[Rfam]
The record is a 57-nucleotide RNA sequence, which matches "terC RNA" in Rfam. It is annotated as a cis-regulatory element. The match comes from Rfam's covariance-model search (58 bits).
RNA sequence: CAGUGACGCCGGGCCCCUCUGGCGGCGACCCCAUCGCCGCGAUGUCGGAGUCACUGU
Numbered sequence: 001c002a003g004u005g006a007c008g009c010c011g012g013g014c015c016c017c018u019c020u021g022g023c024g025g026c027g028a029c030c031c032c033a034u035c036g037c038c039g040c041g042a043u044g045u046c047g048g049a050g051u052c053a054c055u056g057u
Stems, first nucleotide, its partner, number of pairs: 006051002009048004022040007